[Rfam]
RNA sequence: UGUCCCAAUGAUGAUUUAUAAUCAUAAAAGUAGUGGACUGAAUUUUCUUGAAGAGAAAUUAAUUCAGAGGGAUG
Numbered sequence: 001u002g003u004c005c006c007a008a009u010g011a012u013g014a015u016u017u018a019u020a021a022u023c024a025u026a027a028a029a030g031u032a033g034u035g036g037a038c039u040g041a042a043u044u045u046u047c048u049u050g051a052a053g054a055g056a057a058a059u060u061a062a063u064u065c066a067g068a069g070g071g072a073u074g
Stems, first nucleotide, its partner, number of pairs: 001074006
Notes:
This 74-nucleotide RNA sequence from Trifolium medium belongs to the Rfam family "Small nucleolar RNA R21". The source organism's lineage runs through Eukaryota, Spermatophyta, Mesangiospermae, Papilionoideae and Trifolium. The family's consensus secondary structure was predicted with PFOLD.